[Rfam]
RNA sequence: AAUUGAAAAGAGCAAACUUGUCGAAAGGCAGGGACGCAAAGCUAUAGGGCCUGUUCCAGAAGGAUGGCUGCCAGUUGCCAAU
Numbered sequence: 001a002a003u004u005g006a007a008a009a010g011a012g013c014a015a016a017c018u019u020g021u022c023g024a025a026a027g028g029c030a031g032g033g034a035c036g037c038a039a040a041g042c043u044a045u046a047g048g049g050c051c052u053g054u055u056c057c058a059g060a061a062g063g064a065u066g067g068c069u070g071c072c073a074g075u076u077g078c079c080a081a082u
Base pairs, nucleotide, nucleotide: 012037013036017032018031019030020029021028022027040076041075042074043073047072048071049068050067051066055064056063057062